Twister_sister_ribozyme: an 83-nucleotide RNA. Gene Ontology term of the family: catalytic activity. On this family, see Liu et al., Nat Chem Biol 2017: "The structure of a nucleolytic ribozyme that employs a catalytic metal ion". The sequence is in the family's curated seed alignment.
RNA sequence: UAAGCCCGCAAGGCCGACGGCUCCCGCCGCCGCUGGUGCAAGCCCAGCGCCCCACACAAUGGGGCGGCGCUCAUGGGUAACAA
Numbered sequence: 001u002a003a004g005c006c007c008g009c010a011a012g013g014c015c016g017a018c019g020g021c022u023c024c025c026g027c028c029g030c031c032g033c034u035g036g037u038g039c040a041a042g043c044c045c046a047g048c049g050c051c052c053c054a055c056a057c058a059a060u061g062g063g064g065c066g067g068c069g070c071u072c073a074u075g076g077g078u079a080a081c082a083a
Stems, first nucleotide, its partner, number of pairs: 004078004013068003018029003032048004049065006